[Rfam]
RNA sequence: CAGUUUGUGGCAUGAUGUAUUAUAGAAGGGCACUGAAGCUACAAGCGUUUCUUGAUAUGGCUUCAGAAAAUGGUAAAGAUG
Numbered sequence: 001c002a003g004u005u006u007g008u009g010g011c012a013u014g015a016u017g018u019a020u021u022a023u024a025g026a027a028g029g030g031c032a033c034u035g036a037a038g039c040u041a042c043a044a045g046c047g048u049u050u051c052u053u054g055a056u057a058u059g060g061c062u063u064c065a066g067a068a069a070a071u072g073g074u075a076a077a078g079a080u081g
Stems, first nucleotide, its partner, number of pairs: 001081002004078003
RNA: Small nucleolar RNA J33
Organism: Taxus chinensis